[Rfam]
RNA sequence: CGCAUGCUCCGGGGUCGGUGAGAUUCCGAACCGGCGGUGACAGUCCGCGACCCGGCCUCCACGUCCGCGCCACCAGCGCGGCGGUGGGGUCCGGUUGAGCCGGUGGAAUUCCGGCACCGACGGUGAAAGUCCGGAUAGGAGGAGCAGUGG
Numbered sequence: 001c002g003c004a005u006g007c008u009c010c011g012g013g014g015u016c017g018g019u020g021a022g023a024u025u026c027c028g029a030a031c032c033g034g035c036g037g038u039g040a041c042a043g044u045c046c047g048c049g050a051c052c053c054g055g056c057c058u059c060c061a062c063g064u065c066c067g068c069g070c071c072a073c074c075a076g077c078g079c080g081g082c083g084g085u086g087g088g089g090u091c092c093g094g095u096u097g098a099g100c101c102g103g104u105g106g107a108a109u110u111c112c113g114g115c116a117c118c119g120a121c122g123g124u125g126a127a128a129g130u131c132c133g134g135a136u137a138g139g140a141g142g143a144g145c146a147g148u149g150g
Stems, first nucleotide, its partner, number of pairs: 005146006016028003030130002032119002034048004043117002052094004099115005121133003